This 132-nucleotide RNA from Oryctolagus cuniculus belongs to the Rfam family "Small nucleolar RNA SNORA63". Gene Ontology terms of the family: RNA processing and nucleolus. It is annotated as an H/ACA-box small nucleolar RNA. A reference for the family is Mishra and Eliceiri (1997), "Three small nucleolar RNAs that are involved in ribosomal RNA precursor processing", Proc Natl Acad Sci U S A. E3 belongs to the H/ACA class of snoRNAs and is involved in the processing of eukaryotic pre-rRNA and has regions of complementarity to 18S rRNA. E3 is encoded in introns in the gene for protein synthesis initiation factor 4AII. Pairs were carried over by alignment from the consensus structure, which was predicted with PFOLD. NCBI's taxonomy places the organism under Eukaryota, Opisthokonta, Sarcopterygii, Amniota, Oryctolagus.

[Rfam]
RNA sequence: AAGCAUGAUCCAGACUACAAUAUAGCUUUUAAGUGCUGUGUUGUCAUUCCCCCUGCUCAAAAUAAGGUUGUUUCUUCACUAUACCUGCCUACUAUAUUUCUGUAGCAGUCAGAGAUGCUUGGCCUCAUACAA
Numbered sequence: 001a002a003g004c005a006u007g008a009u010c011c012a013g014a015c016u017a018c019a020a021u022a023u024a025g026c027u028u029u030u031a032a033g034u035g036c037u038g039u040g041u042u043g044u045c046a047u048u049c050c051c052c053c054u055g056c057u058c059a060a061a062a063u064a065a066g067g068u069u070g071u072u073u074c075u076u077c078a079c080u081a082u083a084c085c086u087g088c089c090u091a092c093u094a095u096a097u098u099u100c101u102g103u104a105g106c107a108g109u110c111a112g113a114g115a116u117g118c119u120u121g122g123c124c125u126c127a128u129a130c131a132a
Base pairs, nucleotide, nucleotide: 003056004055005054007052017044018043019042020041021040022039023038024037025036026035085112086111087110089108090107092105